The family of this 78-nucleotide RNA sequence from Microcaecilia unicolor is "Mammalian CPEB3 ribozyme". Taxonomically the source falls in Microcaecilia (Eukaryota, Metazoa, Deuterostomia, Teleostomi).

[Rfam]
RNA sequence: AGCCCAGCUCCAGGGUUCAGGGUAGCAGCAGUCAUACGGCAGUCCCUAUCAGAUUCUCAUUAAUUUGUGAAUUCUGCC
Numbered sequence: 001a002g003c004c005c006a007g008c009u010c011c012a013g014g015g016u017u018c019a020g021g022g023u024a025g026c027a028g029c030a031g032u033c034a035u036a037c038g039g040c041a042g043u044c045c046c047u048a049u050c051a052g053a054u055u056c057u058c059a060u061u062a063a064u065u066u067g068u069g070a071a072u073u074c075u076g077c078c
Stems, first nucleotide, its partner, number of pairs: 013046003017042001021078005027072001028040002050067006

Gene Ontology term of the family: RNA nuclease activity. The mammalian CPEB3 ribozyme is a self cleaving RNA located in the second intron of the CPEB3 gene which belongs to a family of genes regulating messenger RNA polyadenylation.